[Rfam]
Shown here is a 107-nucleotide RNA from Metabacillus sediminilitoris, a member of the family "Purine riboswitch aptamer". Lineage of the source: Bacteria > Bacillota > Caryophanales > Bacillaceae > Metabacillus. The family's consensus secondary structure is taken from published work. Gene Ontology term of the family: purine nucleobase biosynthetic process.
RNA sequence: AAAAUCUCAAAUUAGUUUCCUUGUAUAAUAUCAGUUUACAAUGGUCUGAUAGUUUCUACCUGGCAGCCGCUUUUAAAUGCCGGACUACAAGGAAGUGUGAAAAAAAU
Dot-bracket structure: .................((((((((...((((((...........))))))........((((((............))))))..))))))))..............